About this RNA: Rfam assigns this 104-nucleotide RNA from Wenjunlia vitaminophila to the family "ZMP/ZTP riboswitch aptamer (pfl RNA motif)". The family has 185 seed sequences and 3,295 matches in Rfam 15.1.

RNA sequence: UGGAGGCGUCGCGACUGGCGAACGUGGAAGCGACCACGGGGAAGCGGCAUGGCGGAGCACGACUCCGUGACCUCUCCGCGGUGCCGUCCGCCUGGGCCCCGGGU
Dot-bracket structure: ..(..(.(((((..(([[[[...((((......))))..))..))))).)..)...........................(.(((...]]]]..))).).....
The organism belongs to Wenjunlia, within Bacteria.